[Rfam]
RNA sequence: GGUCUGUGAUGUUCUGUAAAAGGUCUGAUGCCUGAGUUUCCCCCAGCUUCCCUUCAGCUCCCAGAAGCCCCUGCUCUGUUCCCAGCAUGCUCUAGGUGUGUGAUGUUGGGUUCAGGGGCUUCUGACAGAUGGGAUGACCUCUCAGCCUGUGUCUCCUCGAGAAUAAGAGGUCACAGUGGUGAUGGACAUCCAACAUAGCCAAUUGCCAAGGAGUAUUUGGGUCUGGGGCAGGAACAGGCAAAUGAUCUCCAGUUUUCAAGCUGAGACC
Number, nucleotide and partner (000 for none) at each position: 001g268002g267003u266004c265005u000006g000007u000008g000009a000010u000011g000012u000013u000014c000015u000016g000017u000018a000019a000020a000021a000022g000023g000024u000025c000026u000027g000028a000029u000030g000031c000032c000033u000034g249035a248036g247037u000038u245039u244040c000041c000042c227043c226044c225045a224046g223047c221048u000049u000050c000051c000052c000053u000054u000055c000056a000057g000058c213059u212060c211061c210062c124063a123064g122065a121066a120067g119068c118069c000070c000071c000072u000073g000074c000075u000076c000077u000078g000079u000080u000081c110082c109083c108084a107085g106086c105087a104088u103089g000090c100091u000092c000093u000094a000095g000096g000097u000098g000099u000100g090101u000102g000103a088104u087105g086106u085107u084108g083109g082110g081111u000112u000113c000114a000115g000116g000117g000118g068119c067120u066121u065122c064123u063124g062125a000126c000127a000128g000129a000130u000131g191132g000133g190134a189135u188136g187137a000138c185139c000140u000141c000142u000143c000144a000145g000146c000147c000148u175149g174150u173151g172152u000153c170154u169155c000156c167157u166158c000159g000160a000161g000162a000163a000164u000165a000166a157167g156168a000169g154170g153171u000172c151173a150174c149175a148176g000177u000178g000179g000180u000181g000182a000183u000184g000185g138186a000187c136188a135189u134190c133191c131192a000193a000194c000195a000196u000197a000198g000199c000200c000201a000202a000203u000204u000205g000206c000207c000208a000209a000210g061211g060212a059213g058214u000215a000216u000217u000218u000219g000220g000221g047222u000223c046224u045225g044226g043227g042228g000229c000230a000231g000232g000233a000234a000235c000236a000237g000238g000239c000240a000241a000242a000243u000244g039245a038246u000247c036248u035249c034250c000251a000252g000253u000254u000255u000256u000257c000258a000259a000260g000261c000262u000263g000264a000265g004266a003267c002268c001
This 268-nucleotide RNA sequence from Conger conger belongs to the Rfam family "Small Cajal body specific RNA 6". It is annotated as a small Cajal body RNA. NCBI's taxonomy places the organism under Eukaryota, Actinopterygii, Neopterygii, Elopocephala, Conger. U88 is small Cajal body specific RNA (scaRNA). scaRNAs are a novel class of small nuclear RNAs which localise to the Cajal bodies. U88 is found associated with both fibrillarin and Gar1p and co-localises with coilin in Cajal bodies. Rfam links the family to the GO terms RNA processing and nucleolus. The match comes from Rfam's covariance-model search (132 bits). Pairs were carried over by alignment from the consensus structure, which is taken from published work. Rfam 15.1 lists 1,309 matches to the family in 627 species.